[Rfam]
RNA: Glycine riboswitch aptamer
RNA sequence: CGAGGCAGCUCUGGAAAGAGCCGGUCACCGUCGUCCGUGACUCGGCCGCCGAAGGAGAAAAAGCUCUCAGGCACCAUCGACAGAGUGGGGAGG
Numbered sequence: 001c002g003a004g005g006c007a008g009c010u011c012u013g014g015a016a017a018g019a020g021c022c023g024g025u026c027a028c029c030g031u032c033g034u035c036c037g038u039g040a041c042u043c044g045g046c047c048g049c050c051g052a053a054g055g056a057g058a059a060a061a062a063g064c065u066c067u068c069a070g071g072c073a074c075c076a077u078c079g080a081c082a083g084a085g086u087g088g089g090g091a092g093g
Base pairs, nucleotide, nucleotide: 006088008086009085010084011083012082013081020046021045022044023043048072049071050070051068052067055066056065057064